The family of this 83-nucleotide sequence from Homo sapiens is "mir-934 microRNA precursor family". The source organism's lineage runs through Eukaryota, Bilateria, Eutheria, Boreoeutheria and Homo. The sequence is in the family's curated seed alignment. A reference for the family is Lui et al. (2007), "Patterns of known and novel small RNAs in human cervical cancer", Cancer Res. The base pairs follow the family's consensus structure, which was predicted with RNAalifold.
RNA sequence: AGAAAUAAGGCUUCUGUCUACUACUGGAGACACUGGUAGUAUAAAACCCAGAGUCUCCAGUAAUGGACGGGAGCCUUAUUUCU
Numbered sequence: 001a002g003a004a005a006u007a008a009g010g011c012u013u014c015u016g017u018c019u020a021c022u023a024c025u026g027g028a029g030a031c032a033c034u035g036g037u038a039g040u041a042u043a044a045a046a047c048c049c050a051g052a053g054u055c056u057c058c059a060g061u062a063a064u065g066g067a068c069g070g071g072a073g074c075c076u077u078a079u080u081u082c083u
Base pairs, nucleotide, nucleotide: 001083002082003081004080005079006078007077008076009075010074011073012072013071014070015069016068017067018066019065020064022062023061024060025059026058027057028056029055030054031053033051034050035049036048039047040046